The record is a 53-nucleotide RNA from Polerovirus PLRV, which matches "Exoribonuclease-resistant RNA (xrRNA) plant-infecting virus (class 3)" in Rfam. Rfam's curators write: Exoribonuclease-resistant RNA (xrRNA) plant-infecting virus (class 3) is a ncRNA that was reported in Plant viruses. The family's RNA type in Rfam is cis-regulatory element. The source organism's lineage runs through Viruses, Pisoniviricetes, Solemoviridae, Polerovirus and Polerovirus PLRV. Pairs were carried over by alignment from the consensus structure, which is taken from published work.
[Rfam]
RNA sequence: AGAACUAGCCAAGCAUACGCGAGUUGCAAGCAUUGGAAGUUCAAGCCUCGUUA
Numbered sequence: 001a002g003a004a005c006u007a008g009c010c011a012a013g014c015a016u017a018c019g020c021g022a023g024u025u026g027c028a029a030g031c032a033u034u035g036g037a038a039g040u041u042c043a044a045g046c047c048u049c050g051u052u053a
Stems, first nucleotide, its partner, number of pairs: 002041002009036002012034001013031002019051005